[Rfam]
RNA: DUF3800-XI RNA
RNA sequence: UGGGCUGGUCAUAAUGGUCCCAGGUCCAUCUAGGGUGGGGAUAGUGCCC
Numbered sequence: 001u002g003g004g005c006u007g008g009u010c011a012u013a014a015u016g017g018u019c020c021c022a023g024g025u026c027c028a029u030c031u032a033g034g035g036u037g038g039g040g041a042u043a044g045u046g047c048c049c
Base pairs, nucleotide, nucleotide: 001028002027003026004025005024006023007019008018009017010016